[Rfam]
RNA: ZMP/ZTP riboswitch aptamer (pfl RNA motif)
Organism: Paenibacillus lutimineralis
RNA sequence: AGUGCUGUAUGUGACUGGCGAAGCAAGUGGAAUUAACCACGAGGGAGCAUAUGGCUGAUAAACGUUUCCGUUCGCCUGGGGAAAAGUA
Numbered sequence: 001a002g003u004g005c006u007g008u009a010u011g012u013g014a015c016u017g018g019c020g021a022a023g024c025a026a027g028u029g030g031a032a033u034u035a036a037c038c039a040c041g042a043g044g045g046a047g048c049a050u051a052u053g054g055c056u057g058a059u060a061a062a063c064g065u066u067u068c069c070g071u072u073c074g075c076c077u078g079g080g081g082a083a084a085a086g087u088a
Base pairs, nucleotide, nucleotide: 004055005054006053007052008051009050010049011048012047015044016043017076018075019074020073021072027040028039029038030037065083066082067081068080069079